[Rfam]
RNA: Small nucleolar RNA snR8
RNA sequence: GUGAUACGAAAUUUAUAGCCUUCUAUUCACUGUGCCAUCUUAGUAUCCGUAGAUGAUCAGAGGGGAAAAGAACGGCUAGACUAAUAUUGGCGCGAGCGUCCUCAUACUGUCCGAAUCGAAUAGCAUUGUCUGGGUUCGGUCGGUAACUGCGCAAGCGCUACAAAC
Numbered sequence: 001g002u003g004a005u006a007c008g009a010a011a012u013u014u015a016u017a018g019c020c021u022u023c024u025a026u027u028c029a030c031u032g033u034g035c036c037a038u039c040u041u042a043g044u045a046u047c048c049g050u051a052g053a054u055g056a057u058c059a060g061a062g063g064g065g066a067a068a069a070g071a072a073c074g075g076c077u078a079g080a081c082u083a084a085u086a087u088u089g090g091c092g093c094g095a096g097c098g099u100c101c102u103c104a105u106a107c108u109g110u111c112c113g114a115a116u117c118g119a120a121u122a123g124c125a126u127u128g129u130c131u132g133g134g135u136u137c138g139g140u141c142g143g144u145a146a147c148u149g150c151g152c153a154a155g156c157g158c159u160a161c162a163a164a165c
Base pairs, nucleotide, nucleotide: 018076019075021072022071030062031061033059034058036055037054038053039052040051089159090158091157092156093155096152097151098150107143108142109141111139112138113137114136115135116134117133122131123130